Source information: Streptomyces RNA 6106: a 79-nucleotide RNA sequence from Streptomyces yokosukanensis. The organism belongs to Streptomyces, within Bacteria. It is annotated as a small RNA. It scores 56 bits against the family's covariance model. On this family, see Vockenhuber et al., RNA Biol 2011: "Deep sequencing-based identification of small non-coding RNAs in Streptomyces coelicolor".

RNA sequence: ACGCGGGAUCGCGUCCGCGGGCUCAACAGGCCCAGAUGGUGGGGGUGGUGCCGUGUCGGCGCAGCACCACCCCUGCCUG
Numbered sequence: 001a002c003g004c005g006g007g008a009u010c011g012c013g014u015c016c017g018c019g020g021g022c023u024c025a026a027c028a029g030g031c032c033c034a035g036a037u038g039g040u041g042g043g044g045g046u047g048g049u050g051c052c053g054u055g056u057c058g059g060c061g062c063a064g065c066a067c068c069a070c071c072c073c074u075g076c077c078u079g
Stems, first nucleotide, its partner, number of pairs: 001014005015038001018035001020033001021031003039076013053062003
Dot-bracket structure: (((((....)))))(..(.((((.....))).).)..)(((((((((((((.(((....))).)))))))))))))...